[Rfam]
RNA sequence: UUAGCACUUUCACAGGUCCUCCCCCAGGCAGCGGGGCCAGGAUUUGGUAGCUGGUGCUGAAAGAAAACCCUUGAACACAUCCUUGCCUUGGGACUGUGCCAGUGGCAGCUGUCACUCAAUGACACAGAA
Numbered sequence: 001u002u003a004g005c006a007c008u009u010u011c012a013c014a015g016g017u018c019c020u021c022c023c024c025c026a027g028g029c030a031g032c033g034g035g036g037c038c039a040g041g042a043u044u045u046g047g048u049a050g051c052u053g054g055u056g057c058u059g060a061a062a063g064a065a066a067a068c069c070c071u072u073g074a075a076c077a078c079a080u081c082c083u084u085g086c087c088u089u090g091g092g093a094c095u096g097u098g099c100c101a102g103u104g105g106c107a108g109c110u111g112u113c114a115c116u117c118a119a120u121g122a123c124a125c126a127g128a129a
Stems, first nucleotide, its partner, number of pairs: 003058006013046003017042004022036004070121001071119004079112002083108005088102004
A member of the RNA family "Small nucleolar RNA SNORA30/SNORA37 family" from Phyllostomus discolor, 129 nucleotides long. Pairs were carried over by alignment from the consensus structure, which was predicted with RNAfold. It scores 119 bits against the family's covariance model. The source organism's lineage runs through Eukaryota, Dipnotetrapodomorpha, Tetrapoda, Phyllostomidae and Phyllostomus. On this family, see Huttenhofer et al., EMBO J 2001: "RNomics: an experimental approach that identifies 201 candidates for novel, small, non-messenger RNAs in mouse". By type it is an H/ACA-box small nucleolar RNA.